[Rfam]
RNA sequence: UAAUAUUUAAGCUCUGCUAAUGGGAUGGGAUCCGAAGCCCUCCGAGGGAUAACAUAGGCUCUCCCAUCCAACUCCUAUUCCGACACGUCCUCGUCGUGCAGAGUGGUAACAUGUGCCUCUAUAUAUCCUAGCUUGGCUACACGGGCUAGAUCCAACCCCUUGGGCGGAUGGUGACAUAUGGCGAACCAGGAGGGG
Numbered sequence: 001u002a003a004u005a006u007u008u009a010a011g012c013u014c015u016g017c018u019a020a021u022g023g024g025a026u027g028g029g030a031u032c033c034g035a036a037g038c039c040c041u042c043c044g045a046g047g048g049a050u051a052a053c054a055u056a057g058g059c060u061c062u063c064c065c066a067u068c069c070a071a072c073u074c075c076u077a078u079u080c081c082g083a084c085a086c087g088u089c090c091u092c093g094u095c096g097u098g099c100a101g102a103g104u105g106g107u108a109a110c111a112u113g114u115g116c117c118u119c120u121a122u123a124u125a126u127c128c129u130a131g132c133u134u135g136g137c138u139a140c141a142c143g144g145g146c147u148a149g150a151u152c153c154a155a156c157c158c159c160u161u162g163g164g165c166g167g168a169u170g171g172u173g174a175c176a177u178a179u180g181g182c183g184a185a186c187c188a189g190g191a192g193g194g195g
Stems, first nucleotide, its partner, number of pairs: 011104007023069008032058002073195004078191002081189001085097003089106002110180006117173001119171002125169004133155004138150001157164002

This 195-nucleotide sequence from Anopheles gambiae belongs to the Rfam family "drz-agam-2-2 ribozyme".
The organism belongs to Anopheles gambiae, within Eukaryota.
Rfam links the family to the GO term catalytic activity.
The family's consensus secondary structure is taken from published work.
A reference for the family is Webb et al. (2009), "Widespread occurrence of self-cleaving ribozymes", Science.